Overview
Shown here is a 132-nucleotide RNA from Notechis scutatus, a member of the family "mir-16 microRNA precursor family". A reference for the family is Calin et al. (2002), "Frequent deletions and down-regulation of micro- RNA genes miR15 and miR16 at 13q14 in chronic lymphocytic leukemia", Proc Natl Acad Sci U S A. Clan: mir-15 clan. The match comes from Rfam's covariance-model search (40 bits).
[Rfam]
RNA sequence: UCCUCCCUGUGGCAGCUCCUCAAAUAUUGGAAGACUGCUAUCAUGUCUCCCCUUGGCUAGUCUAGUAAAGAGAAGGACCAGGGGAGACAUGAUAGCGAUCUUCCAAUAUUUGAGGGGCUGCCACAGGGAGGU
Numbered sequence: 001u002c003c004u005c006c007c008u009g010u011g012g013c014a015g016c017u018c019c020u021c022a023a024a025u026a027u028u029g030g031a032a033g034a035c036u037g038c039u040a041u042c043a044u045g046u047c048u049c050c051c052c053u054u055g056g057c058u059a060g061u062c063u064a065g066u067a068a069a070g071a072g073a074a075g076g077a078c079c080a081g082g083g084g085a086g087a088c089a090u091g092a093u094a095g096c097g098a099u100c101u102u103c104c105a106a107u108a109u110u111u112g113a114g115g116g117g118c119u120g121c122c123a124c125a126g127g128g129a130g131g132u
Base pairs, nucleotide, nucleotide: 002131003130005128006127007126010125011122012121013120014119015118016117017116018115021112023110024109025108026107027106028105029104030103031102032101033100034099